[Rfam]
RNA sequence: GGGACGUAUGAUCCCGUGCUCCCUGGGAGGUGUGAUCCCGUGCUUCCUGGGAGGUGUGAUCACAUGCUUGCU
Numbered sequence: 001g002g003g004a005c006g007u008a009u010g011a012u013c014c015c016g017u018g019c020u021c022c023c024u025g026g027g028a029g030g031u032g033u034g035a036u037c038c039c040g041u042g043c044u045u046c047c048u049g050g051g052a053g054g055u056g057u058g059a060u061c062a063c064a065u066g067c068u069u070g071c072u
Stems, first nucleotide, its partner, number of pairs: 001071001003069002015058004020053001022051008031042004